[Rfam]
RNA sequence: AAUGAUACUUCCGUACUUGGUACGGCUUGCCGGUGGGCGAGCUGAGGAUUUUCGGGCUGGAACAUUUGAUGUCCGUUAAUCCGCAG
Numbered sequence: 001a002a003u004g005a006u007a008c009u010u011c012c013g014u015a016c017u018u019g020g021u022a023c024g025g026c027u028u029g030c031c032g033g034u035g036g037g038c039g040a041g042c043u044g045a046g047g048a049u050u051u052u053c054g055g056g057c058u059g060g061a062a063c064a065u066u067u068g069a070u071g072u073c074c075g076u077u078a079a080u081c082c083g084c085a086g
Base pairs, nucleotide, nucleotide: 011025012024013023014022015021026041027040028039029038030037031036042086043085044084046082047081049079050078054073055072
A member of the RNA family "dinG RNA", 86 nucleotides long. By type it is a small RNA. The sequence is in the family's curated seed alignment. The base pairs follow the family's consensus structure, which is taken from published work.